[Rfam]
RNA sequence: CUUCCAUCGGGGAGAGAAGACCCCGUGGAGUUUUACUGCAGCUUGUGCUUGCGGUAUGGUGGAAAUUGCAUAGAGUAACUGGUAGCCAUGCUAAUGUUCUUUCGGGGACAUUGGAAGCAAAAGUGUAACACCAGUCAUUUUCCUUCGUACUGCUUACCCCAUUAAUUUGGGGGACAGGUGCAGGUGGGCAGUUCGGCUGGGGCGGCACCCCUUUGAAAAGAUAUCAAAGGGGCCCAAAGUUCGGUUCAAACGGGUCAGAAAUCCGUUGAAGAGGGCAAGGCCACAAACUGGACUGACUGGAUCUCCAAACGCACGGGAUUCAGAGAAGAAAUUCGGGCCUAGCGAUCCAUGACGUCCCCACUAUUGGGGGCUCGUGGUGACAGAAAAAUUACCCCAGGGAUAACAGGCUCGUCGCGGGCGAGAGCUCCUAUCGACCCCGCGGUUUGGUACCUCGAUGUCGGCUUUUCCCAUCCUGGCCCUGCAGCAGGGGCCAAGGGUGAGGCUGCUCGCCUAUUAAAGGGGAACAUGAGCUGGGUUUAGACCGUCGUGAGACAGGUCGGACUCUGCCUGAUGGAAGCGU
Dot-bracket structure: ((((((((.(((.((......((.(.(((((((.((((...(((((((..(((((((((.(((((.((.........(((((..((.........(((((....))))).......))............))))))).))))).)))))))))...((((........)))).....)))))))....))))..((((.....))).)((((((...........))))))..((....((((((((.((((((.......))))))...))((......))....))))))....(((((((((.........))))))))).(.(....).).))..........(((((.(.((((.......)))))))))).........)))))..))).))........(((.((((((((...((.......))...)))))))..))))..........(((((((((((..((..(((((......)))))....))..((((.....))))......)))))..)..)))).).....(((((((....))).))))....))..)))))))))))...
Rfam assigns this 580-nucleotide part of an RNA from Nitrosotalea sinensis to the family "Archaeal large subunit ribosomal RNA". Rfam links the family to the GO terms ribosome and structural constituent of ribosome.